[Rfam]
RNA: msiK RNA
RNA sequence: CACAGGCGCUCUUCACUCGGAUCGUCCGGCACGUACCUGCCGGUGAAGGGACCAGUUA
Numbered sequence: 001c002a003c004a005g006g007c008g009c010u011c012u013u014c015a016c017u018c019g020g021a022u023c024g025u026c027c028g029g030c031a032c033g034u035a036c037c038u039g040c041c042g043g044u045g046a047a048g049g050g051a052c053c054a055g056u057u058a
Stems, first nucleotide, its partner, number of pairs: 009050007026043006